Description: This 88-nucleotide RNA from Spiribacter sp. 2438 belongs to the Rfam family "Glycine riboswitch aptamer". It scores 71 bits against the family's covariance model.

RNA sequence: UUCGCCUACGCGGGAGAGAUCAGCGUAAUGCUGGCGCCGAAGGAGCAACCCCCCGGAAUCUCUCAGGCAAAAGGACCGCGUCGGGUUU
Numbered sequence: 001u002u003c004g005c006c007u008a009c010g011c012g013g014g015a016g017a018g019a020u021c022a023g024c025g026u027a028a029u030g031c032u033g034g035c036g037c038c039g040a041a042g043g044a045g046c047a048a049c050c051c052c053c054c055g056g057a058a059u060c061u062c063u064c065a066g067g068c069a070a071a072a073g074g075a076c077c078g079c080g081u082c083g084g085g086u087u088u
Base pairs, nucleotide, nucleotide: 006083008081009080010079011078012077013076020034021033022032023031036068037067038066039064040063043062044061045060049056050055
The pairing is the family consensus, mapped onto this sequence. The source organism's lineage runs through Bacteria, Pseudomonadota, Gammaproteobacteria, Chromatiales and Spiribacter.